[Rfam]
RNA sequence: CCGUCCACCGGUCGGAACGGCUCCCCGUUCGGACGGCCCCAACCGCUACCCUGACCAGGUGCGCCCGUCCUGGGGCAACGCCUCGCCGCCGGGCGCAUAGCCGACAGCCGUCGCAUCCCCGGGAGCUUCCCAUG
Numbered sequence: 001c002c003g004u005c006c007a008c009c010g011g012u013c014g015g016a017a018c019g020g021c022u023c024c025c026c027g028u029u030c031g032g033a034c035g036g037c038c039c040c041a042a043c044c045g046c047u048a049c050c051c052u053g054a055c056c057a058g059g060u061g062c063g064c065c066c067g068u069c070c071u072g073g074g075g076c077a078a079c080g081c082c083u084c085g086c087c088g089c090c091g092g093g094c095g096c097a098u099a100g101c102c103g104a105c106a107g108c109c110g111u112c113g114c115a116u117c118c119c120c121g122g123g124a125g126c127u128u129c130c131c132a133u134g
Base pairs, nucleotide, nucleotide: 060097061096062095063094065092066091067090100114101113103112104111105110